[Rfam]
RNA sequence: UCAUUUGCAGAUGUAGCAUCAUCAAGAUUCACAUGAAAGUGCAAGUGGAUUUGAACUCUUAUCGAUGUAAAUCUAAGUUCUCCAUAGGUCUCUUGAGAAUCUUGAUGAUGCUGCAUCAGCCAUAAA
Numbered sequence: 001u002c003a004u005u006u007g008c009a010g011a012u013g014u015a016g017c018a019u020c021a022u023c024a025a026g027a028u029u030c031a032c033a034u035g036a037a038a039g040u041g042c043a044a045g046u047g048g049a050u051u052u053g054a055a056c057u058c059u060u061a062u063c064g065a066u067g068u069a070a071a072u073c074u075a076a077g078u079u080c081u082c083c084a085u086a087g088g089u090c091u092c093u094u095g096a097g098a099a100u101c102u103u104g105a106u107g108a109u110g111c112u113g114c115a116u117c118a119g120c121c122a123u124a125a126a
Base pairs, nucleotide, nucleotide: 010117011116012115013114014113015112016111017110018109019108020107021106022105023104024103025102026101027100028099029098030097032095033094
The family of this 126-nucleotide RNA sequence from Trifolium pratense is "mir-172 microRNA precursor family". For this family Rfam cites "Computational Identification of Plant MicroRNAs and Their Targets, Including a Stress-Induced miRNA" (Jones-Rhoades and Bartel, Mol Cell, 2004). mir-172 has been experimentally verified in Arabidopsis thaliana. This family is thought to target mRNAs coding for APETALA2-like transcription factors. The mature sequence is excised from the 3' arm of the hairpin. It scores 82 bits against the family's covariance model.